[Rfam]
RNA sequence: GUUGCACAGACAAGGCCAUAGCAGAAGCACUCGCAGUGGAGCCCUGUCAGAUUCCAUAAAAUCUGCAAAUUCUGCC
Numbered sequence: 001g002u003u004g005c006a007c008a009g010a011c012a013a014g015g016c017c018a019u020a021g022c023a024g025a026a027g028c029a030c031u032c033g034c035a036g037u038g039g040a041g042c043c044c045u046g047u048c049a050g051a052u053u054c055c056a057u058a059a060a061a062u063c064u065g066c067a068a069a070u071u072c073u074g075c076c
Stems, first nucleotide, its partner, number of pairs: 014043003021075006028038002048065006
Shown here is a 76-nucleotide RNA from Alligator sinensis, a member of the family "Mammalian CPEB3 ribozyme".
The family's consensus secondary structure is taken from published work.
The source organism's lineage runs through Eukaryota, Dipnotetrapodomorpha, Sauropsida, Alligatorinae and Alligator.